RNA: Plastid-rpl16 group II-D1 intron
Nucleotides: 048
Base pairs, nucleotide, nucleotide: 008040010038011037012036013035014034015033016032017031
Number, partner (000 for none) and nucleotide at each position: 001000a002000a003000g004000a005000g006000c007000g008040c009000c010038g011037a012036g013035u014034c015033a016032a017031u018000a019000a020000a021000g022000a023000u024000u025000g026000g027000g028000a029000a030000u031017a032016u033015u034014g035013g036012c037011u038010c039000a040008g041000a042000a043000a044000c045000a046000a047000a048000u